[Rfam]
RNA sequence: UUACUAUGCUUGCUGAAUUUUCGUCUUGAUGUAUUCAAACGAAAAACGGGGGAACCAAUGAUAGCAGGGCUGCUUAGAUCGGUGUAAAAGCUGGUUCUAGGAACUUUGUUGGGGUGAAUCUUUAUUCGUCGAAUGACAGUGCCAUUCGAUGUGUAAGGAAGGGCGACUCUCAUCGUCCGAAUCCGACAGCUAACCUCGUAAGCUAAUAACUUGAGAGAGG
Numbered sequence: 001u002u003a004c005u006a007u008g009c010u011u012g013c014u015g016a017a018u019u020u021u022c023g024u025c026u027u028g029a030u031g032u033a034u035u036c037a038a039a040c041g042a043a044a045a046a047c048g049g050g051g052g053a054a055c056c057a058a059u060g061a062u063a064g065c066a067g068g069g070c071u072g073c074u075u076a077g078a079u080c081g082g083u084g085u086a087a088a089a090g091c092u093g094g095u096u097c098u099a100g101g102a103a104c105u106u107u108g109u110u111g112g113g114g115u116g117a118a119u120c121u122u123u124a125u126u127c128g129u130c131g132a133a134u135g136a137c138a139g140u141g142c143c144a145u146u147c148g149a150u151g152u153g154u155a156a157g158g159a160a161g162g163g164c165g166a167c168u169c170u171c172a173u174c175g176u177c178c179g180a181a182u183c184c185g186a187c188a189g190c191u192a193a194c195c196u197c198g199u200a201a202g203c204u205a206a207u208a209a210c211u212u213g214a215g216a217g218a219g220g
Stems, first nucleotide, its partner, number of pairs: 012203003018045007046199006056111006112184003120158006161178004
Rfam assigns this 220-nucleotide sequence from Paenibacillus sp. J45TS6 to the family "c-di-AMP riboswitch aptamer (ydaO/yuaA leader)". It scores 78 bits against the family's covariance model. NCBI's taxonomy places the organism under Bacteria, Bacillati, Bacilli, Paenibacillaceae, Paenibacillus.